Notes
Shown here is a 202-nucleotide RNA from Medicago truncatula, a member of the family "MIR2670 microRNA precursor family". A search with the family's covariance model found it, with a score of 187 bits. The family has 7 seed sequences and 188 matches in Rfam 15.1. The family's consensus secondary structure was predicted with RNAalifold.

RNA sequence: UCGGGGUAAAAUAGUGAGUAGCCGACUUGGGGAAGUGAUCGACCCUUGGGAUAAGUUUAAAUCUGCUUUUGUAAACCCCAUAAACUUUCUACCGUGGGUAAAAAGAAUCUUUUUGGGGUAAAAAAAAAAAACCAGAUUUAAAUUUAGCCCAAGAGUGGAUGAUGUAUUUUCUCCAAGAAGGCUGCUCACUAUUUUACUUCAA
Numbered sequence: 001u002c003g004g005g006g007u008a009a010a011a012u013a014g015u016g017a018g019u020a021g022c023c024g025a026c027u028u029g030g031g032g033a034a035g036u037g038a039u040c041g042a043c044c045c046u047u048g049g050g051a052u053a054a055g056u057u058u059a060a061a062u063c064u065g066c067u068u069u070u071g072u073a074a075a076c077c078c079c080a081u082a083a084a085c086u087u088u089c090u091a092c093c094g095u096g097g098g099u100a101a102a103a104a105g106a107a108u109c110u111u112u113u114u115g116g117g118g119u120a121a122a123a124a125a126a127a128a129a130a131a132c133c134a135g136a137u138u139u140a141a142a143u144u145u146a147g148c149c150c151a152a153g154a155g156u157g158g159a160u161g162a163u164g165u166a167u168u169u170u171c172u173c174c175a176a177g178a179a180g181g182c183u184g185c186u187c188a189c190u191a192u193u194u195u196a197c198u199u200c201a202a
Base pairs, nucleotide, nucleotide: 003200004199005198006197007196008195009194010193011192012191013190014189015188016187017186018185019184020183021182022181023180026177027176028175029174030173031172032171033170034169035168038163039162040161041160042156043155046152047151048150049149050148052146053145054144055143057141058140059139060138061137062136063135064134065133067131068130069129070128072126075119076118077117078116079115080114085105086104087103088102090100091099092098093097